[Rfam]
RNA: msiK RNA
Organism: Streptomyces sp. FH025
RNA sequence: CACCGACCCCCUUUACUCGGAUCGUCCGGCACGUUCCUGCCGGUGAAGGAGAAGAAC
Numbered sequence: 001c002a003c004c005g006a007c008c009c010c011c012u013u014u015a016c017u018c019g020g021a022u023c024g025u026c027c028g029g030c031a032c033g034u035u036c037c038u039g040c041c042g043g044u045g046a047a048g049g050a051g052a053a054g055a056a057c
Base pairs, nucleotide, nucleotide: 009049010048012047013046014045015044026043027042028041029040030039031038